[Rfam]
RNA sequence: GCCGGCGUAGCUCAGUGGUAGAGCAGCUGAUUCGUAAUCAGCAGGUCGUAGGUUCGAAUCCCAUCGCCGGCU
Numbered sequence: 001g002c003c004g005g006c007g008u009a010g011c012u013c014a015g016u017g018g019u020a021g022a023g024c025a026g027c028u029g030a031u032u033c034g035u036a037a038u039c040a041g042c043a044g045g046u047c048g049u050a051g052g053u054u055c056g057a058a059u060c061c062c063a064u065c066g067c068c069g070g071c072u
Stems, first nucleotide, its partner, number of pairs: 001071007010024004026042005048064002051061002